[Rfam]
RNA: Archaeal signal recognition particle RNA
Organism: Salinarchaeum sp. Harcht-Bsk1
RNA sequence: GGUCGGACUAGGCCGGGCAGCUAGGCCCUGCUCCUCGCCCGCGAAAUGGUCUUGAGCGGGGGCCGAACGCCCGGGGCGUCCGGUCAAACCCGACCGGGCCCCGGAAGCCGACGUCGAAGCCUCGUCCGUCGGGGACGACGGUCCACGGCGAUCGCCUGCAGGGGCGACCCGUCGUGGUUAACCGGUGGCAGCCGUCAGGCGCGGAAGCGAGCAGCGGACCACCGGACAGUCGUCGCUCGCCGGGUCGCGGGGUGGAGGAGGCGACCGGGCUGACCCGGACGGGAACGAUCGGGCAACUCGGGCCGUCCACCA
Numbered sequence: 001g002g003u004c005g006g007a008c009u010a011g012g013c014c015g016g017g018c019a020g021c022u023a024g025g026c027c028c029u030g031c032u033c034c035u036c037g038c039c040c041g042c043g044a045a046a047u048g049g050u051c052u053u054g055a056g057c058g059g060g061g062g063c064c065g066a067a068c069g070c071c072c073g074g075g076g077c078g079u080c081c082g083g084u085c086a087a088a089c090c091c092g093a094c095c096g097g098g099c100c101c102c103g104g105a106a107g108c109c110g111a112c113g114u115c116g117a118a119g120c121c122u123c124g125u126c127c128g129u130c131g132g133g134g135a136c137g138a139c140g141g142u143c144c145a146c147g148g149c150g151a152u153c154g155c156c157u158g159c160a161g162g163g164g165c166g167a168c169c170c171g172u173c174g175u176g177g178u179u180a181a182c183c184g185g186u187g188g189c190a191g192c193c194g195u196c197a198g199g200c201g202c203g204g205a206a207g208c209g210a211g212c213a214g215c216g217g218a219c220c221a222c223c224g225g226a227c228a229g230u231c232g233u234c235g236c237u238c239g240c241c242g243g244g245u246c247g248c249g250g251g252g253u254g255g256a257g258g259a260g261g262c263g264a265c266c267g268g269g270c271u272g273a274c275c276c277g278g279a280c281g282g283g284a285a286c287g288a289u290c291g292g293g294c295a296a297c298u299c300g301g302g303c304c305g306u307c308c309a310c311c312a
Stems, first nucleotide, its partner, number of pairs: 001311003005308004011064004015033006038060005069303007078294005084287001089283004094278005100269005107262003112257001114255001119253007126243003130239004134234005140227001141179001143177008152167006182225007192217004200209003